Description: The record is an 83-nucleotide sequence from Nguyenibacter vanlangensis, which matches "tRNA" in Rfam. Rfam classes the family as a transfer RNA. NCBI's taxonomy places the organism under Bacteria, Pseudomonadati, Pseudomonadota, Alphaproteobacteria, Nguyenibacter. A search with the family's covariance model found it, with a score of 60 bits. Transfer RNA (tRNA) molecules are approximately 80 nucleotides in length. Their secondary structure includes four short double-helical elements and three loops (D, anti-codon, and T loops). Further hydrogen bonds mediate the characteristic L-shaped molecular structure. tRNAs have two regions of fundamental functional importance: the anti-codon, which is responsible for specific mRNA codon recognition, and the 3' end, to which the tRNAs corresponding amino acid is attached (by aminoacyl-tRNA synthetases). tRNAs cope with the degeneracy of the genetic code in two manners: having more than one tRNA (with a specific anti-codon) for a particular amino acid; and 'wobble' base-pairing, i.e. permitting non-standard base-pairing at the 3rd anti-codon position. Rfam 15.1 lists 5,335,975 matches to the family in 14,413 species.

[Rfam]
RNA sequence: GGAAGGGUGCCCGAGUGGCUAAAGGGGGCGGACUGUAAAUCCGCUGGCGUGCGCCUACGUUGGUUCGAAUCCAACCCCUUCCA
Numbered sequence: 001g002g003a004a005g006g007g008u009g010c011c012c013g014a015g016u017g018g019c020u021a022a023a024g025g026g027g028g029c030g031g032a033c034u035g036u037a038a039a040u041c042c043g044c045u046g047g048c049g050u051g052c053g054c055c056u057a058c059g060u061u062g063g064u065u066c067g068a069a070u071c072c073a074a075c076c077c078c079u080u081c082c083a
Stems, first nucleotide, its partner, number of pairs: 001082007010026003028044005059075005
Dot-bracket structure: (((((((..(((...........))).(((((.......)))))..............(((((.......)))))))))))).